This 329-nucleotide part of an RNA from Plasmodium gonderi belongs to the Rfam family "Eukaryotic large subunit ribosomal RNA".
A search with the family's covariance model found it, with a score of 2482 bits.
On this family, see Yusupov et al., Science 2001: "Crystal structure of the ribosome at 5.5 A resolution".
NCBI's taxonomy places the organism under Eukaryota, Sar, Alveolata, Plasmodiidae, Plasmodium.
RNA sequence: GGAUUAAGAAAGGAAAAAAGUAAAGAGCGAGAGAAUAAUUUCAUUUAUUUGGGUUAUUUCUUUUCUUUAUUAAAAGGAACAUAAGUGAACUAGGAUAAUUAAGAUAAAACAAUAAAGAUGAGCAUAUCGGGGGAAGUAACUUUUCUCGACAGUUCAAUUUAGUCUUUACACUAAUGUGUGGACAACUGGUUUUAUAUAAAAAUCUUUUCAAAAGAAGAAUUAUCUGAUUUACUGAGGAAAGACGAAAAAAAGUAGGAAUUUAUUUUUUUUUUUACUUUAUGAGAUGUUUCUAAACUGUACUUUCUUAACCCACUCGUCUUGAAACACGG
Numbered sequence: 001g002g003a004u005u006a007a008g009a010a011a012g013g014a015a016a017a018a019a020g021u022a023a024a025g026a027g028c029g030a031g032a033g034a035a036u037a038a039u040u041u042c043a044u045u046u047a048u049u050u051g052g053g054u055u056a057u058u059u060c061u062u063u064u065c066u067u068u069a070u071u072a073a074a075a076g077g078a079a080c081a082u083a084a085g086u087g088a089a090c091u092a093g094g095a096u097a098a099u100u101a102a103g104a105u106a107a108a109a110c111a112a113u114a115a116a117g118a119u120g121a122g123c124a125u126a127u128c129g130g131g132g133g134a135a136g137u138a139a140c141u142u143u144u145c146u147c148g149a150c151a152g153u154u155c156a157a158u159u160u161a162g163u164c165u166u167u168a169c170a171c172u173a174a175u176g177u178g179u180g181g182a183c184a185a186c187u188g189g190u191u192u193u194a195u196a197u198a199a200a201a202a203u204c205u206u207u208u209c210a211a212a213a214g215a216a217g218a219a220u221u222a223u224c225u226g227a228u229u230u231a232c233u234g235a236g237g238a239a240a241g242a243c244g245a246a247a248a249a250a251a252g253u254a255g256g257a258a259u260u261u262a263u264u265u266u267u268u269u270u271u272u273u274a275c276u277u278u279a280u281g282a283g284a285u286g287u288u289u290c291u292a293a294a295c296u297g298u299a300c301u302u303u304c305u306u307a308a309c310c311c312a313c314u315c316g317u318c319u320u321g322a323a324a325c326a327c328g329g
Stems, first nucleotide, its partner, number of pairs: 001311002004308009017071001020070007075291007314329004